The record is a 133-nucleotide RNA sequence from Desulfosporosinus metallidurans, which matches "Ribosomal protein L10 leader" in Rfam.
A search with the family's covariance model found it, with a score of 60 bits.
This family is a putative r-protein leader autoregulatory structure found in B. subtilis and other low-GC Gram-positive bacteria. It is located in the 5' untranslated regions of mRNAs encoding ribosomal proteins L10 and L12 (rplJ-rplL). A Rho-independent transcription terminator structure that is probably involved in regulation is included at the 3' end.
The family's RNA type in Rfam is cis-regulatory leader.
The source organism's lineage runs through Bacteria, Clostridia, Eubacteriales, Desulfitobacteriaceae and Desulfosporosinus.
RNA sequence: ACAGUUGAAUAAUGACCGCUGUAGAAAGCAGGAGCCGCGAGGCUUAAUAUCCUGCCGAGGUUGGAAGACACGCCGAUAACUCUUUAUUUGGCAUUCUUAACCUCUGCAUACGCGGAGGUUUUUUGCUGGGUUU
Numbered sequence: 001a002c003a004g005u006u007g008a009a010u011a012a013u014g015a016c017c018g019c020u021g022u023a024g025a026a027a028g029c030a031g032g033a034g035c036c037g038c039g040a041g042g043c044u045u046a047a048u049a050u051c052c053u054g055c056c057g058a059g060g061u062u063g064g065a066a067g068a069c070a071c072g073c074c075g076a077u078a079a080c081u082c083u084u085u086a087u088u089u090g091g092c093a094u095u096c097u098u099a100a101c102c103u104c105u106g107c108a109u110a111c112g113c114g115g116a117g118g119u120u121u122u123u124u125g126c127u128g129g130g131u132u133u
Stems, first nucleotide, its partner, number of pairs: 028055006034043003101118007